[Rfam]
RNA sequence: UGGUAGAUGCACCCUGAUUCAGCCCCGAAGGAAACUUCGGGGCUAUUUCU
Numbered sequence: 001u002g003g004u005a006g007a008u009g010c011a012c013c014c015u016g017a018u019u020c021a022g023c024c025c026c027g028a029a030g031g032a033a034a035c036u037u038c039g040g041g042g043c044u045a046u047u048u049c050u
Stems, first nucleotide, its partner, number of pairs: 002013003023042008
The record is a 50-nucleotide RNA sequence from Leptolyngbya sp. FACHB-16, which matches "Nitrogen stress-induced RNA 1" in Rfam. The match comes from Rfam's covariance-model search (45 bits). It is annotated as a small RNA. The source organism's lineage runs through Bacteria, Bacillati, Cyanophyceae, Leptolyngbyaceae and Leptolyngbya. The family has 17 seed sequences and 962 matches in Rfam 15.1.